Overview: Rfam assigns this 170-nucleotide sequence from Lachnospiraceae bacterium 9_1_43BFAA to the family "M-box riboswitch aptamer (ykoK leader)".
RNA sequence: UGAGAAAUUCGGUAGGUGAGGCUACCAUAGGGAUUUGGAUUUUCCUAAGAUUGCUGCCGCAAAAUUGUGGAGACACAAUUAGUUGGUUAGCAGGCUAUGUCGUAAUAAGGCAUAACCUAAUGCAAUUUUUACGCCCUAUGAUGCUAAAGCUUGAACGAUCGUCCUUUCAG
Dot-bracket structure: ....((...((.[.(((..(((...(((((((.................(((((..(.((.....((((....))))....)).).......((.(..(((......])))..).))....))))).......)))))))..)))...)))....)....)...))....
Lineage of the source: Bacteria > Bacillati > Clostridia > Lachnospirales > Lachnospiraceae. For this family Rfam cites "Magnesium-sensing riboswitches in bacteria" (Ramesh and Winkler, RNA Biol, 2010). Rfam's curators write: M-box riboswitch, also know as ykoK leader is described as a metaloregulatory RNA that sense divalent metals and function as a genetic control element of genes related to divalent metal transport in bacteria. It was first reported upstream of the B.subtilis ykoK gene and genes with related functions in other bacteria. Rfam links the family to the GO terms response to magnesium ion and regulation of gene expression.